[Rfam]
The record is a 312-nucleotide RNA from Anser cygnoides, which matches "7SK RNA" in Rfam. Rfam classes the family as a non-coding RNA gene. 7SK was discovered as an abundant small nuclear RNA in the mid-70s but a possible function has only recently been suggested. Two independent studies have found that 7SK RNA binds the CDK9/cyclin T complex (known as elongation factor P-TEFb). The family is grouped with related families in Rfam's "7SK clan". The match comes from Rfam's covariance-model search (267 bits).
RNA sequence: GGAUGUGAGGGCGAUCUGGCUGCGACAUCUGUCACCCCAUUGAUCGCCAGGGUUGAUUCGGCUGAUCUGGCUGGCUAGGCGGGUGUCCCCUUCCUCCCUCACCGCUCCAUGUGCGUCCCUCCCGAAGCUGCGCGCUCGGUCGAAGAGGACGACCUUCCCCGAUAGAGGCGUACCGUUCAUCGGUCAAGGGUAUACGGUAGCUGCGCUCCCCUGCUAGAACCUCCAAACAAGCUCAAGGUCCAUUUGAUUCUAUGAUUCUAAGUGGAACAUUUGUUUCCAUCCCUGAUUUUCCGUGAAUUACUGGGAAGGGGA
Number, nucleotide and partner (000 for none) at each position: 001g108002g107003a106004u000005g102006u101007g100008a099009g098010g097011g096012c000013g093014a092015u000016c000017u000018g090019g089020c000021u000022g000023c000024g087025a086026c085027a084028u083029c082030u081031g080032u079033c078034a000035c074036c073037c070038c069039a068040u000041u000042g067043a066044u065045c064046g062047c061048c060049a000050g000051g000052g000053u000054u000055g000056a000057u000058u000059c000060g048061g047062c046063u000064g045065a044066u043067c042068u039069g038070g037071c000072u000073g036074g035075c000076u000077a000078g033079g032080c031081g030082g029083g028084u027085g026086u025087c024088c000089c019090c018091u000092u014093c013094c000095u000096c011097c010098c009099u008100c007101a006102c005103c000104g000105c000106u003107c002108c001109a000110u000111g000112u000113g000114c000115g000116u000117c170118c168119c167120u166121c165122c139123c138124g137125a136126a000127g135128c134129u000130g000131c000132g000133c000134g128135c127136u125137c124138g123139g122140u162141c161142g160143a000144a000145g000146a000147g158148g157149a156150c000151g000152a000153c000154c000155u000156u149157c148158c147159c000160c142161g141162a140163u000164a000165g121166a120167g119168g118169c000170g117171u000172a000173c000174c000175g000176u000177u000178c000179a000180u000181c000182g000183g000184u000185c000186a000187a000188g000189g000190g000191u000192a000193u000194a000195c000196g000197g000198u000199a000200g000201c000202u000203g000204c000205g000206c000207u312208c000209c310210c309211c308212u307213g000214c305215u000216a000217g000218a000219a000220c000221c000222u000223c304224c303225a000226a000227a000228c000229a000230a302231g301232c000233u000234c000235a000236a000237g000238g000239u000240c000241c000242a000243u000244u000245u000246g000247a000248u000249u000250c000251u000252a000253u000254g000255a000256u000257u000258c000259u000260a000261a000262g000263u000264g000265g000266a000267a000268c000269a000270u000271u000272u000273g000274u000275u000276u000277c000278c000279a000280u000281c000282c000283c000284u000285g000286a000287u000288u000289u000290u000291c000292c000293g000294u000295g000296a000297a000298u000299u000300a000301c231302u230303g224304g223305g214306a000307a212308g211309g210310g209311g000312a207